Notes: Shown here is a 105-nucleotide RNA from Beta vulgaris, a member of the family "Small nucleolar RNA Z279/snoR105/snoR108". A reference for the family is Marker et al. (2002), "Experimental RNomics: identification of 140 candidates for small non-messenger RNAs in the plant Arabidopsis thaliana", Curr Biol. Rfam describes the family as follows. This family includes the plant snoRNAs known as Z279, snoR105 and snoR108. Its family is annotated with RNA processing and nucleolus in the Gene Ontology.
RNA sequence: GGGAUAUGAGGAGUGGUCAUUAAUCGCAAUUUUGAAAUGCGAUAUGGAUGCCCGCCCCAGCCUGGUUACGACAAUUGGGCAUCCAAAUUUUUACCAUCUGAUCCC
Numbered sequence: 001g002g003g004a005u006a007u008g009a010g011g012a013g014u015g016g017u018c019a020u021u022a023a024u025c026g027c028a029a030u031u032u033u034g035a036a037a038u039g040c041g042a043u044a045u046g047g048a049u050g051c052c053c054g055c056c057c058c059a060g061c062c063u064g065g066u067u068a069c070g071a072c073a074a075u076u077g078g079g080c081a082u083c084c085a086a087a088u089u090u091u092u093a094c095c096a097u098c099u100g101a102u103c104c105c
Base pairs, nucleotide, nucleotide: 001105002104003103004102014096015095016094017093023043024042025041026040027039045085046084047083048082049081050080051079052078063077064076065075066074
Dot-bracket structure: ((((.........((((.....(((((...........))))).((((((((..........((((.......)))))))))))).......)))).....))))